[Rfam]
RNA sequence: CAAUGAAGGAAGCAUGGUAAUGUGCACAUAAAUUGAAUUGGGUCUCUAGACUUGCCUUCUCUGAUGCCAUUUGACUUUGAUUUGGGGGCACAGUUCCACAGCC
Numbered sequence: 001c002a003a004u005g006a007a008g009g010a011a012g013c014a015u016g017g018u019a020a021u022g023u024g025c026a027c028a029u030a031a032a033u034u035g036a037a038u039u040g041g042g043u044c045u046c047u048a049g050a051c052u053u054g055c056c057u058u059c060u061c062u063g064a065u066g067c068c069a070u071u072u073g074a075c076u077u078u079g080a081u082u083u084g085g086g087g088g089c090a091c092a093g094u095u096c097c098a099c100a101g102c103c
Stems, first nucleotide, its partner, number of pairs: 012025004040091001042089003050081001052079001054075001056073001

Overview
Rfam assigns this 103-nucleotide sequence from Rhododendron simsii to the family "Small nucleolar RNA snoR100". By type it is an H/ACA-box small nucleolar RNA.